[Rfam]
Overview:
The record is a 114-nucleotide sequence from Galemys pyrenaicus, which matches "U5 spliceosomal RNA" in Rfam. Rfam links the family to the GO terms U5 snRNP and spliceosomal tri-snRNP complex assembly.
RNA sequence: CUACUCGGGUUUCAUCUCAACUCAUAAAAUAUUUUUCACUUUUUACUAAGAUUUCUGUGGCCAGGAACAAUUCUGAGUUUUUACCUAAUUUUUUGAGACUUGCACUUGUAAGAA
Numbered sequence: 001c002u003a004c005u006c007g008g009g010u011u012u013c014a015u016c017u018c019a020a021c022u023c024a025u026a027a028a029a030u031a032u033u034u035u036u037c038a039c040u041u042u043u044u045a046c047u048a049a050g051a052u053u054u055c056u057g058u059g060g061c062c063a064g065g066a067a068c069a070a071u072u073c074u075g076a077g078u079u080u081u082u083a084c085c086u087a088a089u090u091u092u093u094u095g096a097g098a099c100u101u102g103c104a105c106u107u108g109u110a111a112g113a114a
Stems, first nucleotide, its partner, number of pairs: 003078004009068005017060003029054001031052004036048001099112005
Background
The family's consensus secondary structure is taken from published work. Rfam's curators write: U5 RNA is a component of both types of known spliceosome. The precise function of this molecule is unknown, though it is known that the 5' loop is required for splice site selection and p220 binding, and that both the 3' stem-loop and the Sm site are important for Sm protein binding and cap methylation.